[Rfam]
RNA sequence: CGCUUUCCGGGCACCGGGACUAAGCUCGACCGCCCACUGAAGCGAUGAUCGGCUCCAGUAAAGAUGAGCGUAGUGUUUACGGCGUCGAGUCGAUCUGCAGAAUGCCACCGAUCGCGCCG
Numbered sequence: 001c002g003c004u005u006u007c008c009g010g011g012c013a014c015c016g017g018g019a020c021u022a023a024g025c026u027c028g029a030c031c032g033c034c035c036a037c038u039g040a041a042g043c044g045a046u047g048a049u050c051g052g053c054u055c056c057a058g059u060a061a062a063g064a065u066g067a068g069c070g071u072a073g074u075g076u077u078u079a080c081g082g083c084g085u086c087g088a089g090u091c092g093a094u095c096u097g098c099a100g101a102a103u104g105c106c107a108c109c110g111a112u113c114g115c116g117c118c119g
Stems, first nucleotide, its partner, number of pairs: 016034002020032001080119005091114002094111002097108001100105001
The record is a 119-nucleotide RNA sequence from Puniceibacterium antarcticum, which matches "ALIL pseudoknot" in Rfam. Pairs were carried over by alignment from the consensus structure, which is taken from published work. By type it is a cis-regulatory element. The source organism's lineage runs through Bacteria, Pseudomonadati, Pseudomonadota, Rhodobacterales and Puniceibacterium.